[Rfam]
RNA: Glycine riboswitch aptamer
RNA sequence: AUGAAAGCAAGGGGAGAGAUCACUCCGAACGAGGGAGUGACGCCGAAGGAGCAAGCAGCCGGUUAUCUGUGAAUCUCUCAGGCAAAAAGACUCUUGCCAGACG
Numbered sequence: 001a002u003g004a005a006a007g008c009a010a011g012g013g014g015a016g017a018g019a020u021c022a023c024u025c026c027g028a029a030c031g032a033g034g035g036a037g038u039g040a041c042g043c044c045g046a047a048g049g050a051g052c053a054a055g056c057a058g059c060c061g062g063u064u065a066u067c068u069g070u071g072a073a074u075c076u077c078u079c080a081g082g083c084a085a086a087a088a089g090a091c092u093c094u095u096g097c098c099a100g101a102c103g
Stems, first nucleotide, its partner, number of pairs: 007097007020040007042083003045079002049077003055070004